The family of this 98-nucleotide RNA sequence from Trinickia terrae is "Glycine riboswitch aptamer".
A search with the family's covariance model found it, with a score of 60 bits.
The organism belongs to Trinickia, within Bacteria.
Its family is annotated with glycine biosynthetic process in the Gene Ontology.
Rfam describes the family as follows. This family represents the bacterial glycine riboswitch.
[Rfam]
RNA sequence: CGAUUGAUAUCGGGAGAGUCUCGACCUGCCGCGGCAGGCAAAGCGCCGAAGGAGCAACCGCCCCGGAAACUCUCAGGCUAAAGGACCGGUAUCGCUUU
Numbered sequence: 001c002g003a004u005u006g007a008u009a010u011c012g013g014g015a016g017a018g019u020c021u022c023g024a025c026c027u028g029c030c031g032c033g034g035c036a037g038g039c040a041a042a043g044c045g046c047c048g049a050a051g052g053a054g055c056a057a058c059c060g061c062c063c064c065g066g067a068a069a070c071u072c073u074c075a076g077g078c079u080a081a082a083g084g085a086c087c088g089g090u091a092u093c094g095c096u097u098u
Base pairs, nucleotide, nucleotide: 006093007092008091009090010089011088012087013086020043021042045078046077047076048074049073052072053071054070058066059065